Shown here is an 85-nucleotide sequence from Olea europaea, a member of the family "mir-156 microRNA precursor family". Pairs were carried over by alignment from the consensus structure, which was predicted with PFOLD. Lineage of the source: Eukaryota > lamiids > Lamiales > Olea > Olea europaea. The match comes from Rfam's covariance-model search (63 bits). This family represents the plant microRNA (miRNA) precursor mir-156.

RNA sequence: CUGACAGAAGAGAGUGAGCAUAAGCAGGCAAUUGUAUGGAGAGUAUACAUUUGUGGAUGCGUGUGCUCACUUCUCUUUCUGUCAG
Numbered sequence: 001c002u003g004a005c006a007g008a009a010g011a012g013a014g015u016g017a018g019c020a021u022a023a024g025c026a027g028g029c030a031a032u033u034g035u036a037u038g039g040a041g042a043g044u045a046u047a048c049a050u051u052u053g054u055g056g057a058u059g060c061g062u063g064u065g066c067u068c069a070c071u072u073c074u075c076u077u078u079c080u081g082u083c084a085g
Stems, first nucleotide, its partner, number of pairs: 001085009010075003013071009024060002
A reference for the family is Reinhart et al. (2002), "MicroRNAs in plants", Genes Dev.